RNA: c-di-AMP riboswitch aptamer (ydaO/yuaA leader)
RNA sequence: CGCCGGGUGCCGCCGAGUCGCACCCACCACGGUGGGGCGAGCCGGGGACCCACCUGCACCACCGGGGUGAGUCCCACCCCCGAGCCCGCUCGGGGGUGGGUAGGGCACUCCCAGCCCGAACCCGUCAGCUGACCUGGUAGGCGGCCAGGGGAGAACGG
Numbered sequence: 001c002g003c004c005g006g007g008u009g010c011c012g013c014c015g016a017g018u019c020g021c022a023c024c025c026a027c028c029a030c031g032g033u034g035g036g037g038c039g040a041g042c043c044g045g046g047g048a049c050c051c052a053c054c055u056g057c058a059c060c061a062c063c064g065g066g067g068u069g070a071g072u073c074c075c076a077c078c079c080c081c082g083a084g085c086c087c088g089c090u091c092g093g094g095g096g097u098g099g100g101u102a103g104g105g106c107a108c109u110c111c112c113a114g115c116c117c118g119a120a121c122c123c124g125u126c127a128g129c130u131g132a133c134c135u136g137g138u139a140g141g142c143g144g145c146c147a148g149g150g151g152a153g154a155a156c157g158g
Stems, first nucleotide, its partner, number of pairs: 011143004018040003041138006051064001065123003073100012103117004